Rfam assigns this 161-nucleotide RNA from Triticum aestivum to the family "MIR2118 microRNA precursor family".
NCBI's taxonomy places the organism under Eukaryota, Streptophytina, Petrosaviidae, Triticodae, Triticum.
The literature on the family includes a 2009 paper in Nucleic Acids Res by Xue et al., "Characterization and expression profiles of miRNAs in rice seeds".
The family's consensus secondary structure was predicted with RNAalifold.
[Rfam]
RNA sequence: GUCUGGAAAGGAAGAAAAGAGGGUCAAAGUGUGGUGGUCAUGGAAACAUGGAGGCAAGCUAAAAAUCAUGGUUCUAGAAAUAGAGGUUGUGGUUUGUUUCCCUUUUUCCCGAUGCCUUCCGUUCCUAUUGUUCUCAGGUGCUCCUUCUUCUUCCUUUGGAC
Numbered sequence: 001g002u003c004u005g006g007a008a009a010g011g012a013a014g015a016a017a018a019g020a021g022g023g024u025c026a027a028a029g030u031g032u033g034g035u036g037g038u039c040a041u042g043g044a045a046a047c048a049u050g051g052a053g054g055c056a057a058g059c060u061a062a063a064a065a066u067c068a069u070g071g072u073u074c075u076a077g078a079a080a081u082a083g084a085g086g087u088u089g090u091g092g093u094u095u096g097u098u099u100c101c102c103u104u105u106u107u108c109c110c111g112a113u114g115c116c117u118u119c120c121g122u123u124c125c126u127a128u129u130g131u132u133c134u135c136a137g138g139u140g141c142u143c144c145u146u147c148u149u150c151u152u153c154c155u156u157u158g159g160a161c
Stems, first nucleotide, its partner, number of pairs: 009152008019143003024138002028134002031131003035127003040122006047114003051110001053109002056106003